[Rfam]
RNA sequence: CUGAUCAACGCGUCCGGGUCAAUUGCGGACUGCAACACCCGAUCUCUCUCAACGUGCCAUCGGAGAUGGCACUCGCGGAGGGAGAGCGCGUGACAGUCAG
Number, nucleotide and partner (000 for none) at each position: 001c100002u099003g098004a097005u096006c000007a000008a091009c090010g089011c088012g087013u086014c000015c041016g040017g039018g038019u000020c000021a000022a000023u035024u034025g033026c032027g031028g000029a000030c000031u027032g026033c025034a024035a023036c000037a000038c018039c017040c016041g015042a000043u085044c084045u083046c082047u081048c080049u079050c078051a000052a000053c075054g000055u000056g000057c000058c000059a000060u000061c000062g000063g000064a000065g000066a000067u000068g000069g000070c000071a000072c000073u000074c000075g053076c000077g000078g050079a049080g048081g047082g046083a045084g044085a043086g013087c012088g011089c010090g009091u008092g000093a000094c000095a000096g005097u004098c003099a002100g001